RNA: Small nucleolar RNA SNORD73
Organism: Myotis lucifugus
Nucleotides: 071
Base pairs, nucleotide, nucleotide: 001071002070003069004068
Number, partner (000 for none) and nucleotide at each position: 001071a002070a003069u004068a005000a006000g007000u008000g009000a010000u011000g012000a013000c014000a015000a016000a017000a018000u019000g020000u021000u022000u023000c024000g025000g026000u027000c028000c029000c030000a031000a032000a033000u034000g035000a036000u037000g038000u039000c040000c041000a042000g043000u044000g045000a046000u047000a048000a049000a050000a051000c052000u053000u054000a055000a056000a057000c058000a059000u060000u061000u062000u063000u064000c065000u066000g067000a068004u069003g070002u071001u